RNA sequence: GCCGCCCACGGAGAUGGCAUUCCUCCGCUAACCGCCGCGCUUCGCGGCUGAUGAUGCCUACGUGAUG
Numbered sequence: 001g002c003c004g005c006c007c008a009c010g011g012a013g014a015u016g017g018c019a020u021u022c023c024u025c026c027g028c029u030a031a032c033c034g035c036c037g038c039g040c041u042u043c044g045c046g047g048c049u050g051a052u053g054a055u056g057c058c059u060a061c062g063u064g065a066u067g
Stems, first nucleotide, its partner, number of pairs: 010026004016058006034048004
RNA: Fluoride riboswitch aptamer (crcB RNA motif)
Organism: Burkholderia sp. WAC0059